The family of this 88-nucleotide RNA from Alicyclobacillus sp. SO9 is "c-di-GMP-I riboswitch aptamer".

[Rfam]
RNA sequence: CGUCGUGACGGGCAAACUUCGGGAAAUCGGAGGGCGCAAAACCAUGGGUCUAAAGCCGCUUGUCGGUCAGGACUGCCAGGUUGCCAGU
Numbered sequence: 001c002g003u004c005g006u007g008a009c010g011g012g013c014a015a016a017c018u019u020c021g022g023g024a025a026a027u028c029g030g031a032g033g034g035c036g037c038a039a040a041a042c043c044a045u046g047g048g049u050c051u052a053a054a055g056c057c058g059c060u061u062g063u064c065g066g067u068c069a070g071g072a073c074u075g076c077c078a079g080g081u082u083g084c085c086a087g088u
Stems, first nucleotide, its partner, number of pairs: 012037002017032006040082004045078003048073003055067004

Description: A reference for the family is Sudarsan et al. (2008), "Riboswitches in Eubacteria Sense the Second Messenger Cyclic Di-GMP", Science. About the family: GEMM was predicted in a large-scale screen for bacterial structured RNA regulatory elements. The base pairs follow the family's consensus structure, which is taken from published work. Lineage of the source: Bacteria > Bacillati > Bacillota > Bacilli > Alicyclobacillus.